[Rfam]
Shown here is a 151-nucleotide sequence from Brevibacillus sp. SYP-B805, a member of the family "c-di-AMP riboswitch aptamer (ydaO/yuaA leader)". Taxonomically the source falls in Brevibacillus (Bacteria, Bacillota, Bacilli, Paenibacillaceae). A search with the family's covariance model found it, with a score of 98 bits.
RNA sequence: AUUCUUCGAUCGCUGAAUCUUCCUGGGAAGAGCGGGGGAACCAAUUGGACGAUAGCCUUUGGUCCACGGGGUGAGUCUCGGUAAUAACCGAGUAGGGCGACUCCCACGCCCGAAUCCGUCAGCUAACCUCGCAAGCGUCUGGAGAGGAGAA
Numbered sequence: 001a002u003u004c005u006u007c008g009a010u011c012g013c014u015g016a017a018u019c020u021u022c023c024u025g026g027g028a029a030g031a032g033c034g035g036g037g038g039a040a041c042c043a044a045u046u047g048g049a050c051g052a053u054a055g056c057c058u059u060u061g062g063u064c065c066a067c068g069g070g071g072u073g074a075g076u077c078u079c080g081g082u083a084a085u086a087a088c089c090g091a092g093u094a095g096g097g098c099g100a101c102u103c104c105c106a107c108g109c110c111c112g113a114a115u116c117c118g119u120c121a122g123c124u125a126a127c128c129u130c131g132c133a134a135g136c137g138u139c140u141g142g143a144g145a146g147g148a149g150a151a
Stems, first nucleotide, its partner, number of pairs: 011137004018031003032132006042068001069117003077092004095111004